[Rfam]
RNA sequence: UCCACCUGUGAUCCCCAAACACACUUCCAGAAGUAAACCACUGAUGUAAUUUACUUCUGGAAGUGUGUUUGGGGAUCACAGGUGGA
Dot-bracket structure: .((((((.(((((((((..(((((((((((((((..................)))))))))))))))..))))))))).)))))).
Numbered sequence: 001u002c003c004a005c006c007u008g009u010g011a012u013c014c015c016c017a018a019a020c021a022c023a024c025u026u027c028c029a030g031a032a033g034u035a036a037a038c039c040a041c042u043g044a045u046g047u048a049a050u051u052u053a054c055u056u057c058u059g060g061a062a063g064u065g066u067g068u069u070u071g072g073g074g075a076u077c078a079c080a081g082g083u084g085g086a
Stems, first nucleotide, its partner, number of pairs: 002085006009078009020067015
mir-219 microRNA precursor family: an 86-nucleotide RNA from Loxodonta africana. It scores 55 bits against the family's covariance model. On this family, see Lai et al., Genome Biol 2003: "Computational identification of Drosophila microRNA genes".